[Rfam]
RNA sequence: UGGGAGACUGAUACACAGAUAGGGCUGAAGUACUGCUCUAAAUGUCACAAUGCCUCCCUAGAAUAAAACUGCCUUUUGAUGACCGGAACGAAUUGAGUGAAAUCGUAACGGACAGAUACGGGGCAGAUAACU
Numbered sequence: 001u002g003g004g005a006g007a008c009u010g011a012u013a014c015a016c017a018g019a020u021a022g023g024g025c026u027g028a029a030g031u032a033c034u035g036c037u038c039u040a041a042a043u044g045u046c047a048c049a050a051u052g053c054c055u056c057c058c059u060a061g062a063a064u065a066a067a068a069c070u071g072c073c074u075u076u077u078g079a080u081g082a083c084c085g086g087a088a089c090g091a092a093u094u095g096a097g098u099g100a101a102a103u104c105g106u107a108a109c110g111g112a113c114a115g116a117u118a119c120g121g122g123g124c125a126g127a128u129a130a131c132u
Base pairs, nucleotide, nucleotide: 002058003057004056005055006054015045016044017043022038023037024036025035069126070125071124072123073122074121075120083111084110085109088106089105090104091103
Small Cajal body specific RNA 8: a 132-nucleotide sequence from Ornithorhynchus anatinus.
The sequence is in the family's curated seed alignment.
On this family, see Darzacq et al., EMBO J 2002: "Cajal body-specific small nuclear RNAs: a novel class of 2'-O-methylation and pseudouridylation guide RNAs".
The family's RNA type in Rfam is small Cajal body RNA.
Taxonomically the source falls in Ornithorhynchus (Eukaryota, Metazoa, Eumetazoa, Bilateria).
Rfam 15.1 lists 955 matches to the family in 741 species.
Rfam's curators write: scaRNAs are a specific class of small nuclear RNAs which localise to the Cajal bodies and guide the modification of RNA polymerase II transcribed spliceosomal RNAs U1, U2, U4, U5 and U12. U92 belong to the H/ACA box class of guide RNAs as it has the predicted hairpin-hinge-hairpin-tail structure, conserved H/ACA-box motifs and is found associated with GAR1.